Protozoan signal recognition particle RNA: a 233-nucleotide RNA from Effrenium voratum. Gene Ontology terms of the family: SRP-dependent cotranslational protein targeting to membrane, signal sequence recognition and signal recognition particle, endoplasmic reticulum targeting. The family's RNA type in Rfam is non-coding RNA gene. Pairs were carried over by alignment from the consensus structure, which is taken from published work. It scores 83 bits against the family's covariance model. Its Rfam clan is "SRP clan". For this family Rfam cites "Crystal structure of the ribonucleoprotein core of the signal recognition particle" (Batey et al., Science, 2000).
[Rfam]
RNA sequence: UUCUCAGGGACGGUGUGGCCGAGUGGUCUAAGGCGGUGGCUCAAGGCGCCAUUCCGUAAGGGCGUGGGUUUGAAGCCUGUCCCCCUUUAGUGCGCAGGUUGCAAGGCUGCUGCAAAGUAAUUUGCGGUAGGCUGGCAAGUGGUGACUGAGGGGCGGCUCAGGCUGGCGACAGAGCAGGCAAAUCUCAGCCCUGCGCACAGAUGGGGGAGAACUGGCUUAAGCAGUUGUUAGUG
Numbered sequence: 001u002u003c004u005c006a007g008g009g010a011c012g013g014u015g016u017g018g019c020c021g022a023g024u025g026g027u028c029u030a031a032g033g034c035g036g037u038g039g040c041u042c043a044a045g046g047c048g049c050c051a052u053u054c055c056g057u058a059a060g061g062g063c064g065u066g067g068g069u070u071u072g073a074a075g076c077c078u079g080u081c082c083c084c085c086u087u088u089a090g091u092g093c094g095c096a097g098g099u100u101g102c103a104a105g106g107c108u109g110c111u112g113c114a115a116a117g118u119a120a121u122u123u124g125c126g127g128u129a130g131g132c133u134g135g136c137a138a139g140u141g142g143u144g145a146c147u148g149a150g151g152g153g154c155g156g157c158u159c160a161g162g163c164u165g166g167c168g169a170c171a172g173a174g175c176a177g178g179c180a181a182a183u184c185u186c187a188g189c190c191c192u193g194c195g196c197a198c199a200g201a202u203g204g205g206g207g208a209g210a211a212c213u214g215g216c217u218u219a220a221g222c223a224g225u226u227g228u229u230a231g232u233g
Base pairs, nucleotide, nucleotide: 002013057230058229059228061226062225063224073218074217075216076215077214079212080211081207082206084205085204086203088201090198091197092196093195094194095193096192097191098190099138100137101136102135104133105132107130108129109128110127111126112125113124114123115122116121140144146188147187148186149185150184151183156179157178158177163172164171165170